[Rfam]
RNA sequence: GAGAAGCUGACCAUAAUGAUCCGUACUCAACGUCUACUAGGCCUACUACUUAACGCAUCUUUAUUGCGCGGUAUGUUGGUGGACAGAGUUCAGAGCUGAUUCAGCCCAUCAAUCAUCAGACCCGCGCUACUGCGCGGGUUUUUUU
Numbered sequence: 001g002a003g004a005a006g007c008u009g010a011c012c013a014u015a016a017u018g019a020u021c022c023g024u025a026c027u028c029a030a031c032g033u034c035u036a037c038u039a040g041g042c043c044u045a046c047u048a049c050u051u052a053a054c055g056c057a058u059c060u061u062u063a064u065u066g067c068g069c070g071g072u073a074u075g076u077u078g079g080u081g082g083a084c085a086g087a088g089u090u091c092a093g094a095g096c097u098g099a100u101u102c103a104g105c106c107c108a109u110c111a112a113u114c115a116u117c118a119g120a121c122c123c124g125c126g127c128u129a130c131u132g133c134g135c136g137g138g139u140u141u142u143u144u145u
Stems, first nucleotide, its partner, number of pairs: 006105005014099001016097001018096001020094002032084008047073004054068004118141010
Dot-bracket structure: .....(((((...(.(.(.((..........((((((((.......((((...((((.......)))).))))...))))))))........)).)).).)))))............((((((((((....))))))))))....
RNA: Leucine operon leader
Organism: Chania multitudinisentens